[Rfam]
RNA sequence: AGAGCCGUAGCUUAAUUGGUGAAAGCGCUCAGGCCGCGAUUGCCCGAGAGUUGCAGGUUCAAAUCCUGUCGGUUCCG
Numbered sequence: 001a002g003a004g005c006c007g008u009a010g011c012u013u014a015a016u017u018g019g020u021g022a023a024a025g026c027g028c029u030c031a032g033g034c035c036g037c038g039a040u041u042g043c044c045c046g047a048g049a050g051u052u053g054c055a056g057g058u059u060c061a062a063a064u065c066c067u068g069u070c071g072g073u074u075c076c077g
Stems, first nucleotide, its partner, number of pairs: 002075006010026004028048003053069005
RNA: tRNA
Organism: Pararge aegeria